[Rfam]
Background
The family of this 73-nucleotide RNA sequence is "tRNA". It is one of the family's seed sequences. Pairs were carried over by alignment from the consensus structure, which is taken from published work. Its family is annotated with triplet codon-amino acid adaptor activity in the Gene Ontology.
RNA sequence: CAAGGCGUAGCUAUAACUUCAAAGCAUUCAGCUUACACCUGAAAGAUACCCUCAACAGACAAGGUCGCCUUGA
Numbered sequence: 001c002a003a004g005g006c007g008u009a010g011c012u013a014u015a016a017c018u019u020c021a022a023a024g025c026a027u028u029c030a031g032c033u034u035a036c037a038c039c040u041g042a043a044a045g046a047u048a049c050c051c052u053c054a055a056c057a058g059a060c061a062a063g064g065u066c067g068c069c070u071u072g073a
Base pairs, nucleotide, nucleotide: 001072002071003070004069005068006067007066010025011024012023027043028042029041030040031039048065049064050063052061
Overview:
It is annotated as a transfer RNA.